[Rfam]
RNA sequence: GGGAGGUUACCGAAGCGGUCAAACGGGACAGACUGUAAAUCUGUUGGCUCAUGCCUUCGUAGGUUCGAAUCCUACACCUCCCA
Numbered sequence: 001g002g003g004a005g006g007u008u009a010c011c012g013a014a015g016c017g018g019u020c021a022a023a024c025g026g027g028a029c030a031g032a033c034u035g036u037a038a039a040u041c042u043g044u045u046g047g048c049u050c051a052u053g054c055c056u057u058c059g060u061a062g063g064u065u066c067g068a069a070u071c072c073u074a075c076a077c078c079u080c081c082c083a
Stems, first nucleotide, its partner, number of pairs: 001082007010026003028044005059075005